The record is an 84-nucleotide RNA from Albula goreensis, which matches "mir-221 microRNA precursor family" in Rfam. The family has 72 seed sequences and 1,797 matches in Rfam 15.1. NCBI's taxonomy places the organism under Eukaryota, Deuterostomia, Actinopterygii, Albulidae, Albula. Pairs were carried over by alignment from the consensus structure, which was predicted with RNAalifold. On this family, see Yao et al., J Virol 2008: "MicroRNA profile of Marek's disease virus-transformed T-cell line MSB-1: predominance of virus-encoded microRNAs".
[Rfam]
RNA sequence: UGCGGCCUGAACCUGGCAUACAAUGUAGAUUUCUGUGUUGUUCAAGCAACAGCUACAUUGUCUGCUGGGUUUCAGGAUUCCCAG
Numbered sequence: 001u002g003c004g005g006c007c008u009g010a011a012c013c014u015g016g017c018a019u020a021c022a023a024u025g026u027a028g029a030u031u032u033c034u035g036u037g038u039u040g041u042u043c044a045a046g047c048a049a050c051a052g053c054u055a056c057a058u059u060g061u062c063u064g065c066u067g068g069g070u071u072u073c074a075g076g077a078u079u080c081c082c083a084g
Base pairs, nucleotide, nucleotide: 013068014067015066016065017064018063020061021060022059023058024057025056026055027054028053033052034051035050036049